RNA sequence: GUAUUUAGCUUGUGUCCCGUCUGCCUCCCUCUGUCGGACAGUGACAGAAUGCGGGGUUUCAGACUGAAGACACAGAAAAACUUCUGCCCAUAAAAGGGGACCAGUCCAAAGGUGUGGACUUGGUCCUAAAGGCAGGGCAGGACAGA
Numbered sequence: 001g002u003a004u005u006u007a008g009c010u011u012g013u014g015u016c017c018c019g020u021c022u023g024c025c026u027c028c029c030u031c032u033g034u035c036g037g038a039c040a041g042u043g044a045c046a047g048a049a050u051g052c053g054g055g056g057u058u059u060c061a062g063a064c065u066g067a068a069g070a071c072a073c074a075g076a077a078a079a080a081c082u083u084c085u086g087c088c089c090a091u092a093a094a095a096g097g098g099g100a101c102c103a104g105u106c107c108a109a110a111g112g113u114g115u116g117g118a119c120u121u122g123g124u125c126c127u128a129a130a131g132g133c134a135g136g137g138c139a140g141g142a143c144a145g146a
Stems, first nucleotide, its partner, number of pairs: 002070001004068005010063002023057003027053001029051001083141006091132001097127007104119005
Source information
The family of this 146-nucleotide RNA from Amphiprion ocellaris is "Small Cajal body specific RNA 11". On this family, see Darzacq et al., EMBO J 2002: "Cajal body-specific small nuclear RNAs: a novel class of 2'-O-methylation and pseudouridylation guide RNAs". The family's RNA type in Rfam is small Cajal body RNA. The source organism's lineage runs through Eukaryota, Chordata, Actinopteri, Euteleosteomorpha and Amphiprion. The family's consensus secondary structure was predicted with RNAalifold. About the family: scaRNAs are a specific class of small nuclear RNAs which localise to the Cajal bodies and guide the modification of RNA polymerase II transcribed spliceosomal RNAs U1, U2, U4, U5 and U12.